[Rfam]
RNA sequence: AUUCCUUCUGUCGUGUAUCCUCGAUUGAUGUGGCCUUAGAUACUUCAA
Number, nucleotide and partner (000 for none) at each position: 001a000002u000003u000004c000005c000006u000007u000008c000009u000010g025011u024012c023013g022014u000015g000016u000017a000018u000019c000020c000021u000022c013023g012024a011025u010026u000027g000028a000029u000030g000031u000032g044033g043034c000035c000036u000037u000038a000039g000040a000041u000042a000043c033044u032045u000046c000047a000048a000